[Rfam]
About this RNA
Shown here is a 99-nucleotide RNA sequence from Apilactobacillus ozensis, a member of the family "Purine riboswitch aptamer". Taxonomically the source falls in Apilactobacillus ozensis (Bacteria, Lactobacillales, Lactobacillaceae, Apilactobacillus). The family has 133 seed sequences and 4,097 matches in Rfam 15.1. The base pairs follow the family's consensus structure, which is taken from published work.
RNA sequence: UCAAGUUAAAUAGUAUUUGUUUAUAUAAUACCAAAAUAUGGUUGGUUAGUUUCUACCUAGGACCGUUAAUCCUAGACUAUAAGCAUAAAGUAUUCUAGA
Numbered sequence: 001u002c003a004a005g006u007u008a009a010a011u012a013g014u015a016u017u018u019g020u021u022u023a024u025a026u027a028a029u030a031c032c033a034a035a036a037u038a039u040g041g042u043u044g045g046u047u048a049g050u051u052u053c054u055a056c057c058u059a060g061g062a063c064c065g066u067u068a069a070u071c072c073u074a075g076a077c078u079a080u081a082a083g084c085a086u087a088a089a090g091u092a093u094u095c096u097a098g099a
Stems, first nucleotide, its partner, number of pairs: 018085008029048001030046005057075006